[Rfam]
RNA: Makes More Granules Regulator RNA (mmgR)
Organism: Microvirga tunisiensis
RNA sequence: GGGAGGAGCCCUUCUUGGGCGUUUCCUCCCAAACUUGCCCUCCUGAGCUUCGGCUUGGGAGGGCCCUUUUUAUUUGGGG
Numbered sequence: 001g002g003g004a005g006g007a008g009c010c011c012u013u014c015u016u017g018g019g020c021g022u023u024u025c026c027u028c029c030c031a032a033a034c035u036u037g038c039c040c041u042c043c044u045g046a047g048c049u050u051c052g053g054c055u056u057g058g059g060a061g062g063g064c065c066c067u068u069u070u071u072a073u074u075u076g077g078g079g
Stems, first nucleotide, its partner, number of pairs: 008020004037064011
Dot-bracket structure: .......((((.....))))................(((((((((((......)))))))))))...............